RNA sequence: CGGGAGUGCAUUGUAGUUGCAUUGCACUUGUCAUUAAUAUUGUGCAAUAUAACUACAGGGCAACUCUCG
Numbered sequence: 001c002g003g004g005a006g007u008g009c010a011u012u013g014u015a016g017u018u019g020c021a022u023u024g025c026a027c028u029u030g031u032c033a034u035u036a037a038u039a040u041u042g043u044g045c046a047a048u049a050u051a052a053c054u055a056c057a058g059g060g061c062a063a064c065u066c067u068c069g
Base pairs, nucleotide, nucleotide: 001069002068003067004066006065007062008061009060011058012057013056014055015054016053019050021048022047023046024045025044026043027042

The family of this 69-nucleotide RNA sequence from Pieris macdunnoughi is "mir-33 microRNA precursor family". Its family is annotated with RISC complex and gene silencing by miRNA in the Gene Ontology. It scores 62 bits against the family's covariance model. The family has 73 seed sequences and 1,467 matches in Rfam 15.1. For this family Rfam cites "Direct sequencing and expression analysis of a large number of miRNAs in Aedes aegypti and a multi-species survey of novel mosquito miRNAs" (Li et al., BMC Genomics, 2009). Pairs were carried over by alignment from the consensus structure, which was predicted with PFOLD.